Source information: Shown here is a 78-nucleotide sequence from Medicago truncatula, a member of the family "MIR5269 microRNA precursor family". The match comes from Rfam's covariance-model search (61 bits).
RNA sequence: UUGGUUUAAAUCAUUGUGAGUCUACACUUUGAAAAUACAAUCCACACAAAAUGAUGGACAUAUAUCGAUUUCAUCCAA
Numbered sequence: 001u002u003g004g005u006u007u008a009a010a011u012c013a014u015u016g017u018g019a020g021u022c023u024a025c026a027c028u029u030u031g032a033a034a035a036u037a038c039a040a041u042c043c044a045c046a047c048a049a050a051a052u053g054a055u056g057g058a059c060a061u062a063u064a065u066c067g068a069u070u071u072c073a074u075c076c077a078a
Stems, first nucleotide, its partner, number of pairs: 001078004006073001008071005015064004022057003025053002028050004